Source information
Ruegeria cis8 sRNA: a 128-nucleotide sequence from Roseinatronobacter ekhonensis. The organism belongs to Roseinatronobacter, within Bacteria. A search with the family's covariance model found it, with a score of 81 bits.
RNA sequence: AUGGUCAGGAUCUUGGCGAUAUAAGGGAUCAGCGGCAGGUUCAGGAUGAGCAGCACCAGAUUGCCGAUAUACAUUGAGAUGAUGACCGCCCAGAACACAUCGGGCGUGUCGGUCAUCAGCCGUGGGCC
Number, nucleotide and partner (000 for none) at each position: 001a000002u000003g000004g017005u016006c015007a014008g013009g000010a000011u000012c000013u008014u007015g006016g005017c004018g000019a000020u000021a000022u000023a000024a000025g000026g128027g127028a000029u125030c124031a123032g000033c122034g121035g120036c119037a000038g114039g113040u112041u000042c000043a109044g000045g000046a107047u106048g105049a000050g000051c102052a000053g101054c000055a000056c000057c000058a000059g000060a000061u093062u092063g091064c000065c000066g000067a000068u000069a000070u000071a000072c084073a083074u082075u081076g000077a000078g000079a000080u000081g075082a074083u073084g072085a000086c000087c000088g000089c000090c000091c063092a062093g061094a000095a000096c000097a000098c000099a000100u000101c053102g051103g000104g000105c048106g047107u046108g000109u043110c000111g000112g040113u039114c038115a000116u000117c000118a000119g036120c035121c034122g033123u031124g030125g029126g000127c027128c026